The record is a 136-nucleotide RNA sequence from Pan troglodytes, which matches "U8 small nucleolar RNA" in Rfam. Taxonomically the source falls in Pan (Eukaryota, Craniata, Dipnotetrapodomorpha, Primates). Rfam classes the family as a C/D-box small nucleolar RNA. The family has 55 seed sequences and 1,597 matches in Rfam 15.1. On this family, see Peculis et al., Gene 2001: "The U8 snoRNA gene family: identification and characterization of distinct, functional U8 genes in Xenopus".
RNA sequence: UUCUCAUGUGGGAUAGUUUUCACUUGUUCCUUCCUUUGGAGGGCAGAUUAGAACAUGAUGAAUGUAGUUUGCACAAUACAUUAUCAACAUCUUGGAGUUGUCAGAACUUGCAAUGCCCUGAUUUCGUUCUAUUUAC
Numbered sequence: 001u002u003c004u005c006a007u008g009u010g011g012g013a014u015a016g017u018u019u020u021c022a023c024u025u026g027u028u029c030c031u032u033c034c035u036u037u038g039g040a041g042g043g044c045a046g047a048u049u050a051g052a053a054c055a056u057g058a059u060g061a062a063u064g065u066a067g068u069u070u071g072c073a074c075a076a077u078a079c080a081u082u083a084u085c086a087a088c089a090u091c092u093u094g095g096a097g098u099u100g101u102c103a104g105a106a107c108u109u110g111c112a113a114u115g116c117c118c119u120g121a122u123u124u125c126g127u128u129c130u131a132u133u134u135a136c
Stems, first nucleotide, its partner, number of pairs: 024046003028043006075093002078090001081086001097125001100122005